[Rfam]
RNA sequence: UGGACGCUUAAGCUAUUGAACUGUUCUGUCACUCUCUGACAGAGAACAAUUUGUUCUUUGACAGAGAGUCACAAAACAGUUCAAUAGCUAAAUAAAGCGUCCAC
Numbered sequence: 001u002g003g004a005c006g007c008u009u010a011a012g013c014u015a016u017u018g019a020a021c022u023g024u025u026c027u028g029u030c031a032c033u034c035u036c037u038g039a040c041a042g043a044g045a046a047c048a049a050u051u052u053g054u055u056c057u058u059u060g061a062c063a064g065a066g067a068g069u070c071a072c073a074a075a076a077c078a079g080u081u082c083a084a085u086a087g088c089u090a091a092a093u094a095a096a097g098c099g100u101c102c103a104c
Base pairs, nucleotide, nucleotide: 001103002102007097008096009091011089012088013087014086015085016084017083018082019081020080021079022078023077024076025065026064027063028062029061030060031059045055046054047053048052

The record is a 104-nucleotide RNA from Plutella xylostella, which matches "mir-8517 microRNA precursor family" in Rfam. The match comes from Rfam's covariance-model search (100 bits). Rfam links the family to the GO terms miRNA-mediated post-transcriptional gene silencing and RISC complex. Lineage of the source: Eukaryota > Bilateria > Lepidoptera > Yponomeutoidea > Plutella.